Shown here is an 88-nucleotide sequence from Celeribacter baekdonensis, a member of the family "Glycine riboswitch aptamer".
NCBI's taxonomy places the organism under Bacteria, Alphaproteobacteria, Rhodobacterales, Roseobacteraceae, Celeribacter baekdonensis.
RNA sequence: CACGUUGGGAGAACGGGAGACUCGCAGGUCAAACCCGUACCGAAGGAGCAACCGCCCCGGUAAACUCUCAGGUAAACGGACCUUCGUG
Numbered sequence: 001c002a003c004g005u006u007g008g009g010a011g012a013a014c015g016g017g018a019g020a021c022u023c024g025c026a027g028g029u030c031a032a033a034c035c036c037g038u039a040c041c042g043a044a045g046g047a048g049c050a051a052c053c054g055c056c057c058c059g060g061u062a063a064a065c066u067c068u069c070a071g072g073u074a075a076a077c078g079g080a081c082c083u084u085c086g087u088g
Stems, first nucleotide, its partner, number of pairs: 001088004007082002014037004039073003042069002046067003052060002